[Rfam]
Shown here is a 70-nucleotide RNA from Thrips palmi, a member of the family "mir-71 microRNA precursor family".
Taxonomically the source falls in Thrips (Eukaryota, Opisthokonta, Pancrustacea, Neoptera).
The family's consensus secondary structure was predicted with RNAalifold.

RNA sequence: GUGGCGUGAAAGACAUGGGUAGUGAGAUGUUUGCUCAUGUAUAUCUCACUACCUUGUCUUUCAUGUUGCU
Numbered sequence: 001g002u003g004g005c006g007u008g009a010a011a012g013a014c015a016u017g018g019g020u021a022g023u024g025a026g027a028u029g030u031u032u033g034c035u036c037a038u039g040u041a042u043a044u045c046u047c048a049c050u051a052c053c054u055u056g057u058c059u060u061u062c063a064u065g066u067u068g069c070u
Base pairs, nucleotide, nucleotide: 008062009061010060011059012058013057014056015055017054018053019052021050022049023048024047025046026045027044028043029042